[Rfam]
Shown here is an 83-nucleotide sequence from Nasonia vitripennis, a member of the family "let-7 microRNA precursor family". Pairs were carried over by alignment from the consensus structure, which was predicted with RNAalifold.
RNA sequence: CCUGGGUGAGGUAGUAGGUUGUAUAGUGGGGAAUGAAAAUUCGUCAUUAUGGAAUCCACUGUACAACUUGCUAACUUUCCCGG
Number, nucleotide and partner (000 for none) at each position: 001c083002c082003u000004g080005g079006g078007u000008g077009a076010g075011g000012u073013a072014g071015u070016a069017g068018g067019u066020u065021g064022u063023a062024u061025a060026g059027u058028g000029g000030g000031g000032a000033a044034u043035g042036a000037a000038a000039a000040u000041u000042c035043g034044u033045c000046a000047u054048u053049a000050u000051g000052g000053a048054a047055u000056c000057c000058a027059c026060u025061g024062u023063a022064c021065a020066a019067c018068u017069u016070g015071c014072u013073a012074a000075c010076u009077u008078u006079c005080c004081c000082g002083g001

Its Rfam clan is "let-7 microRNA precursor clan". About the family: This family represents the microRNAs (miRNA) let-7 and mir-98. let-7 was identified from a study of developmental timing in C. elegans, and was later shown to be part of a much larger class of non-coding RNAs termed miRNAs. The family has 64 seed sequences and 8,694 matches in Rfam 15.1. Taxonomically the source falls in Nasonia (Eukaryota, Pterygota, Proctotrupomorpha, Chalcidoidea). For this family Rfam cites "Control of developmental timing in animals" (Rougvie, Nat Rev Genet, 2001).